[Rfam]
RNA sequence: UCCGCUAAAGUUUUCCUUAGGAUAGUAGUGUUAAUCUUAGUUUUAUAAGGUAAAGCAAAUAAUUAGGGACUUAAGGGCUAUAUACUACCUUUAUCUAUUCUUAAACUUUAAAUAUAUAAGAAGCCCUUAUUAUUUAAUUAAAUAUAAGCAUUUAAAUAUAUUAACACUAGUAGGCUAUUUUUAGUAAGUAAAACUAGUAAUGUAGGAUAAACUAAACGCAAGGUUAAGGUGCUAGAGUAAACGCUUAUUAGAUACUAUAAAAGGUAUUAGUAUAUCUUAAUAGUAGGAUAGUAGCUAUAGAAGUUAGAAUUCGCUAAGGACUAUAUAAUAACUUACCUGCUAAAUAUACUAGCCUUAAAAAUAAAUAGUACUUAAGUAUUUUACCUAUACCUUACCCUUAGGGUAAAAAUAAAGCCCUAAGGAGUAGGUAAAUAUAGGGAUUAGUAAUAAAGCCUAGGGCAUAAGCCUAGGUUAAAUAGCCUUUAGUGUAAAU
Numbered sequence: 001u002c003c004g005c006u007a008a009a010g011u012u013u014u015c016c017u018u019a020g021g022a023u024a025g026u027a028g029u030g031u032u033a034a035u036c037u038u039a040g041u042u043u044u045a046u047a048a049g050g051u052a053a054a055g056c057a058a059a060u061a062a063u064u065a066g067g068g069a070c071u072u073a074a075g076g077g078c079u080a081u082a083u084a085c086u087a088c089c090u091u092u093a094u095c096u097a098u099u100c101u102u103a104a105a106c107u108u109u110a111a112a113u114a115u116a117u118a119a120g121a122a123g124c125c126c127u128u129a130u131u132a133u134u135u136a137a138u139u140a141a142a143u144a145u146a147a148g149c150a151u152u153u154a155a156a157u158a159u160a161u162u163a164a165c166a167c168u169a170g171u172a173g174g175c176u177a178u179u180u181u182u183a184g185u186a187a188g189u190a191a192a193a194c195u196a197g198u199a200a201u202g203u204a205g206g207a208u209a210a211a212c213u214a215a216a217c218g219c220a221a222g223g224u225u226a227a228g229g230u231g232c233u234a235g236a237g238u239a240a241a242c243g244c245u246u247a248u249u250a251g252a253u254a255c256u257a258u259a260a261a262a263g264g265u266a267u268u269a270g271u272a273u274a275u276c277u278u279a280a281u282a283g284u285a286g287g288a289u290a291g292u293a294g295c296u297a298u299a300g301a302a303g304u305u306a307g308a309a310u311u312c313g314c315u316a317a318g319g320a321c322u323a324u325a326u327a328a329u330a331a332c333u334u335a336c337c338u339g340c341u342a343a344a345u346a347u348a349c350u351a352g353c354c355u356u357a358a359a360a361a362u363a364a365a366u367a368g369u370a371c372u373u374a375a376g377u378a379u380u381u382u383a384c385c386u387a388u389a390c391c392u393u394a395c396c397c398u399u400a401g402g403g404u405a406a407a408a409a410u411a412a413a414g415c416c417c418u419a420a421g422g423a424g425u426a427g428g429u430a431a432a433u434a435u436a437g438g439g440a441u442u443a444g445u446a447a448u449a450a451a452g453c454c455u456a457g458g459g460c461a462u463a464a465g466c467c468u469a470g471g472u473u474a475a476a477u478a479g480c481c482u483u484u485a486g487u488g489u490a491a492a493u
Base pairs, nucleotide, nucleotide: 001432004429005428006427011024013022014021015020027168028167029166030165031164032163033162041121042120043119044118045117046116047115053109054107055106060103061102062101065098067096068095069094072093073092074091075090076089077088080086123149124148128144129143130142131141174198175197176196177195179193180192181191182190183189203214204213205212218395220393221392222391224389228385229384230383237382239381243377244376262356263355264354267352268351269350270349271348272347273346274345275344283340284339285338286337287336289313291311295307296306314318319334324331396422397421398420399419400418401417402416403415404414433488435485436484437483438482439481441479442478444477445476452472453471458467459466460465
Dot-bracket structure: (..(((....(.(((....))).)..(((((((.......(((((((.....(((....(((..(.(((..((((((..(.....).))))))))).)..)))..)).).....))))))).((...((((.........))))...))............))))))).....((((.(((((.....))))).))))....(((......)))...(.(((.(...(((......(.(...((.................(((..(((((((((.......(((((.(.(...((.........))...).)(...)(....(......)..).)))))...))))))))).)))...................))...)))))...).))).)(((((((((.........)))))))))....)))..)(.(((((.((.((......((....(((....)))...))...)))).)))))..).....